The record is a 251-nucleotide sequence from Fumia xinanensis, which matches "T-box leader" in Rfam. NCBI's taxonomy places the organism under Bacteria, Bacillati, Clostridia, Eubacteriales, Fumia. Rfam describes the family as follows. Uncharged tRNA acts as the effector for transcription antitermination of genes in the T-box leader family. It scores 109 bits against the family's covariance model.

RNA sequence: AAAAAUGCUUUGACAGGGAAAAAGUAUCCUGCCUUGGAGUUUCAGAGAGCCGUCGGUUGGUGAGAGGCGGUACCCGGGAUGAUGCAACUGGCCCUUGAGCAGCCGCCUGAACGCAGUGUUUGUCAGUAGGAGCGGACGGGUUCUCCGCCGUUACCAGAGGAGCAGUAUUCGCUGAAUAGGCUGAUACGAUAGAGUGGGUGCAAUCGCACCAAUGAGAAUGGUACCACGGAAGUGUCGCUUUCGUUUCUUGA
Numbered sequence: 001a002a003a004a005a006u007g008c009u010u011u012g013a014c015a016g017g018g019a020a021a022a023a024g025u026a027u028c029c030u031g032c033c034u035u036g037g038a039g040u041u042u043c044a045g046a047g048a049g050c051c052g053u054c055g056g057u058u059g060g061u062g063a064g065a066g067g068c069g070g071u072a073c074c075c076g077g078g079a080u081g082a083u084g085c086a087a088c089u090g091g092c093c094c095u096u097g098a099g100c101a102g103c104c105g106c107c108u109g110a111a112c113g114c115a116g117u118g119u120u121u122g123u124c125a126g127u128a129g130g131a132g133c134g135g136a137c138g139g140g141u142u143c144u145c146c147g148c149c150g151u152u153a154c155c156a157g158a159g160g161a162g163c164a165g166u167a168u169u170c171g172c173u174g175a176a177u178a179g180g181c182u183g184a185u186a187c188g189a190u191a192g193a194g195u196g197g198g199u200g201c202a203a204u205c206g207c208a209c210c211a212a213u214g215a216g217a218a219u220g221g222u223a224c225c226a227c228g229g230a231a232g233u234g235u236c237g238c239u240u241u242c243g244u245u246u247c248u249u250g251a
Stems, first nucleotide, its partner, number of pairs: 007100002015095004029081001039073002049071006103135004107130002137150003197210005215248004226244007
Dot-bracket structure: ......((......((((..........(.........((........((((((...........)))))))).......)..........))))...))..((((((....................)).)))).(((........)))..............................................(((((....)))))....((((.......(((((((.....)))))))))))...